[Rfam]
RNA sequence: GCUCUAACGAACAGUGACAAUGGCACGGAGCUCCAAAGCUUCGUGCCAUAGUCCAAGCAUAGUCGUUGAAGCUCAACGAUGCAGGUUCAGGACCCGGGUGCGAUACCCGGCGCCUCCACCAAGAGCACACCACCCAGGCCAAUCCAUCAGCCCGGGUCGAUUGAACAGGGAAGGGCGCUUGAGAGCGUUAACAAGCCUGCGAGUGGUGUGUUCUUGAUGGGGGCGAAAUAGGAUCGACUGGCCAGCGGGUGUGAUGUGGAGACUAUCGGAGGCGAGCGCGUGAUAGCCGCAAAACUGAUAAAUGCCAACGACAACGUUCGCAUGGAUGCUCAGGCCCUCGCGGCUUAAGUAAUCGGGGGCUCGGAGGUGCCUAGCAACAGAAACCUCCACU
Numbered sequence: 001g002c003u004c005u006a007a008c009g010a011a012c013a014g015u016g017a018c019a020a021u022g023g024c025a026c027g028g029a030g031c032u033c034c035a036a037a038g039c040u041u042c043g044u045g046c047c048a049u050a051g052u053c054c055a056a057g058c059a060u061a062g063u064c065g066u067u068g069a070a071g072c073u074c075a076a077c078g079a080u081g082c083a084g085g086u087u088c089a090g091g092a093c094c095c096g097g098g099u100g101c102g103a104u105a106c107c108c109g110g111c112g113c114c115u116c117c118a119c120c121a122a123g124a125g126c127a128c129a130c131c132a133c134c135c136a137g138g139c140c141a142a143u144c145c146a147u148c149a150g151c152c153c154g155g156g157u158c159g160a161u162u163g164a165a166c167a168g169g170g171a172a173g174g175g176c177g178c179u180u181g182a183g184a185g186c187g188u189u190a191a192c193a194a195g196c197c198u199g200c201g202a203g204u205g206g207u208g209u210g211u212u213c214u215u216g217a218u219g220g221g222g223g224c225g226a227a228a229u230a231g232g233a234u235c236g237a238c239u240g241g242c243c244a245g246c247g248g249g250u251g252u253g254a255u256g257u258g259g260a261g262a263c264u265a266u267c268g269g270a271g272g273c274g275a276g277c278g279c280g281u282g283a284u285a286g287c288c289g290c291a292a293a294a295c296u297g298a299u300a301a302a303u304g305c306c307a308a309c310g311a312c313a314a315c316g317u318u319c320g321c322a323u324g325g326a327u328g329c330u331c332a333g334g335c336c337c338u339c340g341c342g343g344c345u346u347a348a349g350u351a352a353u354c355g356g357g358g359g360c361u362c363g364g365a366g367g368u369g370c371c372u373a374g375c376a377a378c379a380g381a382a383a384c385c386u387c388c389a390c391u
Stems, first nucleotide, its partner, number of pairs: 001058003062266002065263002072259002074253002084243003088240003094110005111225007267280002276288001357372004363388006
RNA: Alphaproteobacteria transfer-messenger RNA